The record is a 297-nucleotide RNA from Octodon degus, which matches "Mason-Pfizer monkey virus packaging signal" in Rfam. Lineage of the source: Eukaryota > Eumetazoa > Teleostomi > Euarchontoglires > Octodon. Pairs were carried over by alignment from the consensus structure, which was predicted with PFOLD. Rfam's curators write: This family represents a group of sequences that are related to the Mason-Pfizer monkey virus (MPMV) packaging signal. A reference for the family is Harrison et al. (1995), "Secondary structure model of the Mason-Pfizer monkey virus 5' leader sequence: identification of a structural motif common to a variety of retroviruses", J Virol. By type it is a cis-regulatory element.
RNA sequence: UGGCGCCCAACGUGGGGCACCUGGUACAGAGGAUACAGUGACAGAACAGUUGGAGAGAGCCGGGAAGAGAGAAAGACAAAAGAGAAAGUAAAAGAGGACCGCGCCGCAGUUACCUGCUGCGACGUCUGAACCUCGGUAAGCGGACAGCACCCACUUUCCCUUUCCCUUUGGCAAUGGGACAGGCAUUAAGUGAGCAUGAGCUAUUUGUAGAAAGUUUGAGCAAAGCAUUAAAGGUGCGAGGAGUAAAGGUUAAAAUUAAGGAUUUGUGUCAAUAUUUUGAAUAUAUUAAACAAGUUU
Numbered sequence: 001u002g003g004c005g006c007c008c009a010a011c012g013u014g015g016g017g018c019a020c021c022u023g024g025u026a027c028a029g030a031g032g033a034u035a036c037a038g039u040g041a042c043a044g045a046a047c048a049g050u051u052g053g054a055g056a057g058a059g060c061c062g063g064g065a066a067g068a069g070a071g072a073a074a075g076a077c078a079a080a081a082g083a084g085a086a087a088g089u090a091a092a093a094g095a096g097g098a099c100c101g102c103g104c105c106g107c108a109g110u111u112a113c114c115u116g117c118u119g120c121g122a123c124g125u126c127u128g129a130a131c132c133u134c135g136g137u138a139a140g141c142g143g144a145c146a147g148c149a150c151c152c153a154c155u156u157u158c159c160c161u162u163u164c165c166c167u168u169u170g171g172c173a174a175u176g177g178g179a180c181a182g183g184c185a186u187u188a189a190g191u192g193a194g195c196a197u198g199a200g201c202u203a204u205u206u207g208u209a210g211a212a213a214g215u216u217u218g219a220g221c222a223a224a225g226c227a228u229u230a231a232a233g234g235u236g237c238g239a240g241g242a243g244u245a246a247a248g249g250u251u252a253a254a255a256u257u258a259a260g261g262a263u264u265u266g267u268g269u270c271a272a273u274a275u276u277u278u279g280a281a282u283a284u285a286u287u288a289a290a291c292a293a294g295u296u297u
Stems, first nucleotide, its partner, number of pairs: 006032002012027003037050001039048001088137002093133002100128001101125002105121005145182001147180001150178004187230003190226002237279005243273002247265005